A member of the RNA family "Plant small nucleolar RNA R71" from Eutrema salsugineum, 107 nucleotides long.
The source organism's lineage runs through Eukaryota, Spermatophyta, Mesangiospermae, eudicotyledons and Eutrema.
Rfam links the family to the GO terms nucleolus and RNA processing.
For this family Rfam cites "Plant snoRNAs: functional evolution and new modes of gene expression" (Brown et al., Trends Plant Sci, 2003).
RNA sequence: AACCCAUGGUGUGGGCAUUGGUUUGUGUAGCUUCUGAAUCUCUCAUAUGCUUCACCCAAACUCUCAUUGCUGUGCUGAGUGAAACUAGAGAUUUGGUUCCUCAGUUU
Numbered sequence: 001a002a003c004c005c006a007u008g009g010u011g012u013g014g015g016c017a018u019u020g021g022u023u024u025g026u027g028u029a030g031c032u033u034c035u036g037a038a039u040c041u042c043u044c045a046u047a048u049g050c051u052u053c054a055c056c057c058a059a060a061c062u063c064u065c066a067u068u069g070c071u072g073u074g075c076u077g078a079g080u081g082a083a084a085c086u087a088g089a090g091a092u093u094u095g096g097u098u099c100c101u102c103a104g105u106u107u
Base pairs, nucleotide, nucleotide: 001107004104006101057074058073060071